[Rfam]
Shown here is a 64-nucleotide sequence from Asbolus verrucosus, a member of the family "mir-2 microRNA precursor family". Lineage of the source: Eukaryota > Mandibulata > Neoptera > Neuropteroidea > Asbolus. Its family is annotated with RISC complex and miRNA-mediated post-transcriptional gene silencing in the Gene Ontology.
RNA sequence: UCGCUCAUCAGCUGGAUGUGAAAUGUUCUUUCAACCAUAUCACAGCCAGCUUUGAUGAGCGCAA
Numbered sequence: 001u002c003g004c005u006c007a008u009c010a011g012c013u014g015g016a017u018g019u020g021a022a023a024u025g026u027u028c029u030u031u032c033a034a035c036c037a038u039a040u041c042a043c044a045g046c047c048a049g050c051u052u053u054g055a056u057g058a059g060c061g062c063a064a
Base pairs, nucleotide, nucleotide: 005058006057007056008055009054010053011052013048014047015046017044018043019042020041021040024039025038026037

A search with the family's covariance model found it, with a score of 48 bits.